[Rfam]
RNA sequence: UAUAAUUGAAAUGGGAGCUAAUUUGCUGAGAGUAGACAUAAGUCUUGACCAUGAAACCUGAUUUGGAUAAUGCCAACGUAGGAAUUUUAUGAGCACCUUCU
Numbered sequence: 001u002a003u004a005a006u007u008g009a010a011a012u013g014g015g016a017g018c019u020a021a022u023u024u025g026c027u028g029a030g031a032g033u034a035g036a037c038a039u040a041a042g043u044c045u046u047g048a049c050c051a052u053g054a055a056a057c058c059u060g061a062u063u064u065g066g067a068u069a070a071u072g073c074c075a076a077c078g079u080a081g082g083a084a085u086u087u088u089a090u091g092a093g094c095a096c097c098u099u100c101u
Base pairs, nucleotide, nucleotide: 006089008087009086010085011052012051013050014049016046017026018025034045035044036043037042057082058081059080060079063076064075065074066073
The family of this 101-nucleotide RNA sequence from Catenibacterium sp. CAG:290 is "TPP riboswitch aptamer (THI element)". Lineage of the source: Bacteria > Bacillati > Bacillota > Erysipelotrichales > Catenibacterium. The family's consensus secondary structure is taken from published work. It scores 64 bits against the family's covariance model.